The record is a 342-nucleotide RNA from Clostridium argentinense, which matches "Bacterial RNase P class A" in Rfam. Ribonuclease P (RNase P) is a ubiquitous endoribonuclease, found in archaea, bacteria and eukarya as well as chloroplasts and mitochondria. Its best characterised activity is the generation of mature 5'-ends of tRNAs by cleaving the 5'-leader elements of precursor-tRNAs. Cellular RNase Ps are ribonucleoproteins. RNA from bacterial RNase Ps retains its catalytic activity in the absence of the protein subunit, i.e. it is a ribozyme. Isolated eukaryotic and archaeal RNase P RNA has not been shown to retain its catalytic function, but is still essential for the catalytic activity of the holoenzyme. Although the archaeal and eukaryotic holoenzyme s have a much greater protein content than the bacterial ones, the RNA cores from all the three lineages are homologous -- helices corresponding to P1, P2, P3, P4, and P10/11 are common to all cellular RNase P RNAs. Yet, there is considerable sequence variation, particularly among the eukaryotic RNAs. Identified in Yersinia as Ysr151/RnpB. A reference for the family is Frank and Pace (1998), "Ribonuclease P: unity and diversity in a tRNA processing ribozyme", Annu Rev Biochem. It is annotated as a ribozyme. Its family is annotated with ribonuclease P activity, tRNA processing and dimeric ribonuclease P complex in the Gene Ontology. The organism belongs to Clostridium argentinense, within Bacteria.
RNA sequence: CGAGUAAGCCAGACAAUCGCUGCUGAUUUAUUCAGGAGAGGAAAGUCCGAGCUCCAUAGGGCAGGGUGCUGGGUAACCCCCAGUGGAGGCAACUCUAAGGAAAGUGCAACAGAGAGAUACCGCCUAAGUUUACUUAGGUAAGGAUGGAAAGGCGAGGUAAGAGCUCACCAGCGUACUGGCGACUGUACGGCUAUGUAAACCCCACCUGGAGCAAGACCGAAUAGGAAGGUAAAUGGGAUUGCCCGUCCCGCCUUCGGGUGUGUCGCUUGAGCCCAUUGGUAACAAUGGGCCUAGAUAGAUGAUUGUCAAAUACAGAACUCGGCUUAUAGGUUUACUCGUACC
Numbered sequence: 001c002g003a004g005u006a007a008g009c010c011a012g013a014c015a016a017u018c019g020c021u022g023c024u025g026a027u028u029u030a031u032u033c034a035g036g037a038g039a040g041g042a043a044a045g046u047c048c049g050a051g052c053u054c055c056a057u058a059g060g061g062c063a064g065g066g067u068g069c070u071g072g073g074u075a076a077c078c079c080c081c082a083g084u085g086g087a088g089g090c091a092a093c094u095c096u097a098a099g100g101a102a103a104g105u106g107c108a109a110c111a112g113a114g115a116g117a118u119a120c121c122g123c124c125u126a127a128g129u130u131u132a133c134u135u136a137g138g139u140a141a142g143g144a145u146g147g148a149a150a151g152g153c154g155a156g157g158u159a160a161g162a163g164c165u166c167a168c169c170a171g172c173g174u175a176c177u178g179g180c181g182a183c184u185g186u187a188c189g190g191c192u193a194u195g196u197a198a199a200c201c202c203c204a205c206c207u208g209g210a211g212c213a214a215g216a217c218c219g220a221a222u223a224g225g226a227a228g229g230u231a232a233a234u235g236g237g238a239u240u241g242c243c244c245g246u247c248c249c250g251c252c253u254u255c256g257g258g259u260g261u262g263u264c265g266c267u268u269g270a271g272c273c274c275a276u277u278g279g280u281a282a283c284a285a286u287g288g289g290c291c292u293a294g295a296u297a298g299a300u301g302a303u304u305g306u307c308a309a310a311u312a313c314a315g316a317a318c319u320c321g322g323c324u325u326a327u328a329g330g331u332u333u334a335c336u337c338g339u340a341c342c
Stems, first nucleotide, its partner, number of pairs: 001338010011327001012307007020038002023035004043325003047322005052211004059244004064207005069083005084098001085096004099202002104200002106196003120143002122139007151169002154166003171191001172189005178183001215264003225255006235249005271290008